[Rfam]
Mycobacterium sRNA ncrMT1302: a 96-nucleotide sequence from Mycobacterium sinensis. NCBI's taxonomy places the organism under Bacteria, Bacillati, Actinomycetota, Mycobacteriales, Mycobacterium (subgen. Mycolicibacter). Rfam classes the family as a small RNA.

RNA sequence: UUAUGACCGAUCCGAAGAGCUGGACUCGUGGGUGACAUCCAGCCGCGCAGGAAGUGUAGACGCCCCACGUUGUCAAACCGGGCCUGCCCCAUGUCU
Numbered sequence: 001u002u003a004u005g006a007c008c009g010a011u012c013c014g015a016a017g018a019g020c021u022g023g024a025c026u027c028g029u030g031g032g033u034g035a036c037a038u039c040c041a042g043c044c045g046c047g048c049a050g051g052a053a054g055u056g057u058a059g060a061c062g063c064c065c066c067a068c069g070u071u072g073u074c075a076a077a078c079c080g081g082g083c084c085u086g087c088c089c090c091a092u093g094u095c096u
Base pairs, nucleotide, nucleotide: 004075005074006073007072020042021041022040023039027034045063046062047061080090081089082088